[Rfam]
RNA sequence: AAUGCACAUAAAAACCCAAAGAAUAUUGUUACUCAUAACAAUAUUCUUGUCAUGUGUGCAGAUAUUAAAGGUAUCUUGUCGCCUUUCAAAAGCUGAAGUGCUGUUGAAAGUGAAAUUUAAGGUUCCACAUUG
Numbered sequence: 001a002a003u004g005c006a007c008a009u010a011a012a013a014a015c016c017c018a019a020a021g022a023a024u025a026u027u028g029u030u031a032c033u034c035a036u037a038a039c040a041a042u043a044u045u046c047u048u049g050u051c052a053u054g055u056g057u058g059c060a061g062a063u064a065u066u067a068a069a070g071g072u073a074u075c076u077u078g079u080c081g082c083c084u085u086u087c088a089a090a091a092g093c094u095g096a097a098g099u100g101c102u103g104u105u106g107a108a109a110g111u112g113a114a115a116u117u118u119a120a121g122g123u124u125c126c127a128c129a130u131u132g
Stems, first nucleotide, its partner, number of pairs: 003060007021046010071125001073123005083110007091102003
RNA: Small nucleolar RNA SNORA68